[Rfam]
RNA: MAT2A 3'UTR stem loop E
Organism: Hipposideros armiger
RNA sequence: CCAGCAUUCCCAGGUAGGCUAAGCUGUCCCACAGAAGAACCUUGGGUUAGACCUGCAGAAGGUCUGG
Numbered sequence: 001c002c003a004g005c006a007u008u009c010c011c012a013g014g015u016a017g018g019c020u021a022a023g024c025u026g027u028c029c030c031a032c033a034g035a036a037g038a039a040c041c042u043u044g045g046g047u048u049a050g051a052c053c054u055g056c057a058g059a060a061g062g063u064c065u066g067g
Base pairs, nucleotide, nucleotide: 001067002066003065004064006063007062008061011058014056015055016054017053018052019045020044021043022042023041025039026032027031